[Rfam]
RNA: tRNA
Organism: Penicillium nordicum
RNA sequence: GGUGCCAUGGUCUAGUGGUAUGACGACACAUUGUGGUUAUUUUAAUUCUGUGUUAGCCCCGGUUCGAUUCCGGGUGGCGCCA
Numbered sequence: 001g002g003u004g005c006c007a008u009g010g011u012c013u014a015g016u017g018g019u020a021u022g023a024c025g026a027c028a029c030a031u032u033g034u035g036g037u038u039a040u041u042u043u044a045a046u047u048c049u050g051u052g053u054u055a056g057c058c059c060c061g062g063u064u065c066g067a068u069u070c071c072g073g074g075u076g077g078c079g080c081c082a
Base pairs, nucleotide, nucleotide: 001081002080003079004078005077006076007075010024011023012022026053027052028051029050030049058074059073060072061071062070